[Rfam]
RNA sequence: AGUCGUCUGAGCGACUAUAAACAGAGUUUUAGGCUCAGAGCGCCUCCCCUUCGGGGGAGGGUACUA
Numbered sequence: 001a002g003u004c005g006u007c008u009g010a011g012c013g014a015c016u017a018u019a020a021a022c023a024g025a026g027u028u029u030u031a032g033g034c035u036c037a038g039a040g041c042g043c044c045u046c047c048c049c050u051u052c053g054g055g056g057g058a059g060g061g062u063a064c065u066a
Stems, first nucleotide, its partner, number of pairs: 001016004006039006025065003033041001043060007
A member of the RNA family "Pistol ribozyme", 66 nucleotides long. The base pairs follow the family's consensus structure, which is taken from published work. A reference for the family is Weinberg et al. (2015), "New classes of self-cleaving ribozymes revealed by comparative genomics analysis", Nat Chem Biol.